[Rfam]
RNA: Rhizobiales sRNA Atu_C7
Organism: Rhizobium sp. SEMIA4064
RNA sequence: GUUCUCCUGGCGCGUCCUGAAGCCGCAGGUGUUUCCUCCCUUGCCUGUUGGUGAUGCGCCCGCCUUGCCUCGCUCGCUGCGACAAGCUGAGCGGGGCUUCUU
Numbered sequence: 001g002u003u004c005u006c007c008u009g010g011c012g013c014g015u016c017c018u019g020a021a022g023c024c025g026c027a028g029g030u031g032u033u034u035c036c037u038c039c040c041u042u043g044c045c046u047g048u049u050g051g052u053g054a055u056g057c058g059c060c061c062g063c064c065u066u067g068c069c070u071c072g073c074u075c076g077c078u079g080c081g082a083c084a085a086g087c088u089g090a091g092c093g094g095g096g097c098u099u100c101u102u
Stems, first nucleotide, its partner, number of pairs: 009060008025048007067097009078086001